[Rfam]
RNA sequence: AAAUUCCUGCGGUGUGCGUGAUUAGGUAGAUGAUUUUGGGCCGACGUUAAUUACCUUGGGAACUCCCGCUUGCUCUGGAUGGCCUUUCCUUUUAGGAAAAAGCCAAAAGGAGUAAUGGAGUACCCACCUGUCGGAAGACAGGUUCAAAAGACUCUACCAACACGGCACUGCGGGAUAAAU
Numbered sequence: 001a002a003a004u005u006c007c008u009g010c011g012g013u014g015u016g017c018g019u020g021a022u023u024a025g026g027u028a029g030a031u032g033a034u035u036u037u038g039g040g041c042c043g044a045c046g047u048u049a050a051u052u053a054c055c056u057u058g059g060g061a062a063c064u065c066c067c068g069c070u071u072g073c074u075c076u077g078g079a080u081g082g083c084c085u086u087u088c089c090u091u092u093u094a095g096g097a098a099a100a101a102g103c104c105a106a107a108a109g110g111a112g113u114a115a116u117g118g119a120g121u122a123c124c125c126a127c128c129u130g131u132c133g134g135a136a137g138a139c140a141g142g143u144u145c146a147a148a149a150g151a152c153u154c155u156a157c158c159a160a161c162a163c164g165g166c167a168c169u170g171c172g173g174g175a176u177a178a179a180u
Base pairs, nucleotide, nucleotide: 005175006174007173008172009171010170011169012168013167014166015165017164018163019162034149035148037146038145039144040143041142042141058125059124060123062121063120064119065118066117070115071114072113073112074111075110076109082103083102085099086098087097088096089095
RNA: 6S / SsrS RNA
Organism: Candidatus Desulfofervidus auxilii